[Rfam]
RNA sequence: AGAGAUCUCAAGCUUAAGGCCAAACCAGAAGCACUCAUGGCAUGGCCUGUCAGAUUCCAAUGAAUCUGCAAAUUCUGCU
Numbered sequence: 001a002g003a004g005a006u007c008u009c010a011a012g013c014u015u016a017a018g019g020c021c022a023a024a025c026c027a028g029a030a031g032c033a034c035u036c037a038u039g040g041c042a043u044g045g046c047c048u049g050u051c052a053g054a055u056u057c058c059a060a061u062g063a064a065u066c067u068g069c070a071a072a073u074u075c076u077g078c079u
Stems, first nucleotide, its partner, number of pairs: 018047004024079001026077005031043001051068007

A member of the RNA family "Mammalian CPEB3 ribozyme" from Alligator mississippiensis, 79 nucleotides long. It scores 45 bits against the family's covariance model.